[Rfam]
RNA sequence: AACGAACAAACACCCAGCGGCAGGAGCGGGGGACCCAGGUAAGUCGCCGGGCCCGGACACCACGUCCGGACCGGCUUGGGGUGAAGUCGUGCCGCAUCCGUGCGGGACGGCCGGGCAGCUUCGGCCCGAACCCGACAGCUCACCUCGUAGGCGACGGAGAGGAACGCU
Numbered sequence: 001a002a003c004g005a006a007c008a009a010a011c012a013c014c015c016a017g018c019g020g021c022a023g024g025a026g027c028g029g030g031g032g033a034c035c036c037a038g039g040u041a042a043g044u045c046g047c048c049g050g051g052c053c054c055g056g057a058c059a060c061c062a063c064g065u066c067c068g069g070a071c072c073g074g075c076u077u078g079g080g081g082u083g084a085a086g087u088c089g090u091g092c093c094g095c096a097u098c099c100g101u102g103c104g105g106g107a108c109g110g111c112c113g114g115g116c117a118g119c120u121u122c123g124g125c126c127c128g129a130a131c132c133c134g135a136c137a138g139c140u141c142a143c144c145u146c147g148u149a150g151g152c153g154a155c156g157g158a159g160a161g162g163a164a165c166g167c168u
Stems, first nucleotide, its partner, number of pairs: 026148006036078005079133003087110004113127004

The family of this 168-nucleotide RNA from Streptomyces mangrovisoli is "c-di-AMP riboswitch aptamer (ydaO/yuaA leader)". The organism belongs to Streptomyces, within Bacteria.